Notes:
Rfam assigns this 92-nucleotide sequence from Herbaspirillum sp. SJZ107 to the family "Glycine riboswitch aptamer".

[Rfam]
RNA sequence: GCGGCCAACUCUGGAGAGCGGCCCUGGGGGCCCACCGAAGGGGCAGGCGGCAUCGCCGCUAUCUCUCAGGUACCGAGGACAGAGGGGUGCGC
Dot-bracket structure: .....(..(((((......((((.....)))).(((((..(((...((.........))...))))).)))........)))))..).....
Rfam links the family to the GO term glycine biosynthetic process. A search with the family's covariance model found it, with a score of 49 bits. This family represents the bacterial glycine riboswitch.